Shown here is a 149-nucleotide sequence from Pseudomonas cavernae, a member of the family "proV RNA". The organism belongs to Pseudomonas, within Bacteria.
RNA sequence: CGUCGCUGCCGGUUCCCGUGGGCCGGCAGACUGAGAGCCCACCGCUCCAGACCGAAGAACCCAUAAGCGGCAGCCUUCUCCUCGCAUGAAGGCACGCCUACAAGAAAUUUCGGAAGUACGCACACCUCCGGUCGAGGUGUUGAAUGCCC
Numbered sequence: 001c002g003u004c005g006c007u008g009c010c011g012g013u014u015c016c017c018g019u020g021g022g023c024c025g026g027c028a029g030a031c032u033g034a035g036a037g038c039c040c041a042c043c044g045c046u047c048c049a050g051a052c053c054g055a056a057g058a059a060c061c062c063a064u065a066a067g068c069g070g071c072a073g074c075c076u077u078c079u080c081c082u083c084g085c086a087u088g089a090a091g092g093c094a095c096g097c098c099u100a101c102a103a104g105a106a107a108u109u110u111c112g113g114a115a116g117u118a119c120g121c122a123c124a125c126c127u128c129c130g131g132u133c134g135a136g137g138u139g140u141u142g143a144a145u146g147c148c149c
Stems, first nucleotide, its partner, number of pairs: 006029007015022002031050003035047004121142001122140007
It is annotated as a small RNA.